RNA: Group II catalytic intron D1-D4-5
RNA sequence: UACAACUAAUAGAAUGUUGCUCAAAUGAGUGGCUAACACCACAAAGGGGCGCACAUAAACUGCCUACGGCAUGAGUAGCAGCGCCAUGUGAAAAUGUCGGAAAGCUAGGCUGGAGAGCAAAAAUUCGACCCAAACAGUUUUAGCUGUGGAAAUGUUUGUAGAGGUACAGGCUGUCGAAGAUUAUGUAGUGGGCUGUAUA
Numbered sequence: 001u002a003c004a005a006c007u008a009a010u011a012g013a014a015u016g017u018u019g020c021u022c023a024a025a026u027g028a029g030u031g032g033c034u035a036a037c038a039c040c041a042c043a044a045a046g047g048g049g050c051g052c053a054c055a056u057a058a059a060c061u062g063c064c065u066a067c068g069g070c071a072u073g074a075g076u077a078g079c080a081g082c083g084c085c086a087u088g089u090g091a092a093a094a095u096g097u098c099g100g101a102a103a104g105c106u107a108g109g110c111u112g113g114a115g116a117g118c119a120a121a122a123a124u125u126c127g128a129c130c131c132a133a134a135c136a137g138u139u140u141u142a143g144c145u146g147u148g149g150a151a152a153u154g155u156u157u158g159u160a161g162a163g164g165u166a167c168a169g170g171c172u173g174u175c176g177a178a179g180a181u182u183a184u185g186u187a188g189u190g191g192g193c194u195g196u197a198u199a
Stems, first nucleotide, its partner, number of pairs: 018051003021047002030041003054190003062110004067099004072086002118185002124178006130149003136145002154171007